mir-631 microRNA precursor family: a 74-nucleotide RNA from Orycteropus afer.
RNA sequence: GGGGAGCCUGGCUAGACCUGGCCCAGACUUCAGCUUUGUAAGCUGAUGGAUUGAGUCAGGGGCCAAGGCUCUCC
Numbered sequence: 001g002g003g004g005a006g007c008c009u010g011g012c013u014a015g016a017c018c019u020g021g022c023c024c025a026g027a028c029u030u031c032a033g034c035u036u037u038g039u040a041a042g043c044u045g046a047u048g049g050a051u052u053g054a055g056u057c058a059g060g061g062g063c064c065a066a067g068g069c070u071c072u073c074c
Base pairs, nucleotide, nucleotide: 001074002073003072004071005070006069009066010064011063012062013061017060018059019058020057021056022055024053025052026051028049029048030046031045032044033043034042035041